[Rfam]
RNA sequence: GUGGGCUAUGGGGACAUGAAGCCCAUUACUGUGGGGGGCAAGAUAGUGGGGUCGCUGUGUGCCAUUGCGGGUGUCUUAACCAUUGCUUUGCCAGUGCCAGUGAUUGUCUCUAAC
Numbered sequence: 001g002u003g004g005g006c007u008a009u010g011g012g013g014a015c016a017u018g019a020a021g022c023c024c025a026u027u028a029c030u031g032u033g034g035g036g037g038g039c040a041a042g043a044u045a046g047u048g049g050g051g052u053c054g055c056u057g058u059g060u061g062c063c064a065u066u067g068c069g070g071g072u073g074u075c076u077u078a079a080c081c082a083u084u085g086c087u088u089u090g091c092c093a094g095u096g097c098c099a100g101u102g103a104u105u106g107u108c109u110c111u112a113a114c
Stems, first nucleotide, its partner, number of pairs: 001114002004111002008107004014101002018097001020095001037077002040074001049063002
Dot-bracket structure: ((.((..((((..((..(.(................((.(........((...........))..........).)).................).)..))..))))..)).))
This 114-nucleotide RNA from Orycteropus afer belongs to the Rfam family "Potassium channel RNA editing signal". It is annotated as a cis-regulatory element. Pairs were carried over by alignment from the consensus structure, which is taken from published work. Taxonomically the source falls in Orycteropus afer (Eukaryota, Deuterostomia, Amniota, Eutheria). Its family is annotated with adenosine to inosine editing in the Gene Ontology.